The family of this 107-nucleotide RNA sequence from Exiguobacterium chiriqhucha is "BsrF".
[Rfam]
RNA sequence: GCGAUGAGCUGGUCUAUGUAAGACGGCGGACAUUCCUUCGGGAGCACGUUGUGGAGCGUGGUUCGACGCGGUAGACUUUUCGAGAGCACCUCUAGUGAGAGGUGCUC
Numbered sequence: 001g002c003g004a005u006g007a008g009c010u011g012g013u014c015u016a017u018g019u020a021a022g023a024c025g026g027c028g029g030a031c032a033u034u035c036c037u038u039c040g041g042g043a044g045c046a047c048g049u050u051g052u053g054g055a056g057c058g059u060g061g062u063u064c065g066a067c068g069c070g071g072u073a074g075a076c077u078u079u080u081c082g083a084g085a086g087c088a089c090c091u092c093u094a095g096u097g098a099g100a101g102g103u104g105c106u107c
Stems, first nucleotide, its partner, number of pairs: 014074004024068002027065005034043002045060002048057003084107009
The family's RNA type in Rfam is small RNA.